[Rfam]
RNA sequence: CAAUCGGCUCUUUUCAGAGCCAACAAAUGUGUUCUAAAGAGUUAUUU
Numbered sequence: 001c002a003a004u005c006g007g008c009u010c011u012u013u014u015c016a017g018a019g020c021c022a023a024c025a026a027a028u029g030u031g032u033u034c035u036a037a038a039g040a041g042u043u044a045u046u047u
Base pairs, nucleotide, nucleotide: 006021007020008019009018010017011016
The record is a 47-nucleotide sequence from Aedes aegypti, which matches "Histone 3' UTR stem-loop" in Rfam.
Its family is annotated with mRNA 3'-end processing by stem-loop binding and cleavage in the Gene Ontology.
Rfam's curators write: The mRNAs of metazoan histone genes lack a poly-A tail. 3' end processing occurs at a site between a highly conserved stem-loop (modelled by this family) and a purine rich region around 20 nts downstream (the histone downstream element, or HDE). The stem-loop is bound by a 31 kDa stem-loop binding protein (SLBP - also termed the histone hairpin binding protein, or HBP). Together with U7 snRNA binding of the HDE, SLBP binding nucleate s the formation of the processing complex. The histone 3' UTR stem-loop is also involved in nucleocytoplasmic transport of the mRNA, and in stability regulation and translation efficiency in the cytoplasm.
On this family, see Williams and Marzluff, Nucleic Acids Res 1995: "The sequence of the stem and flanking sequences at the 3' end of histone mRNA are critical determinants for the binding of the stem-loop binding protein".
Lineage of the source: Eukaryota > Panarthropoda > Panorpida > Culicomorpha > Stegomyia.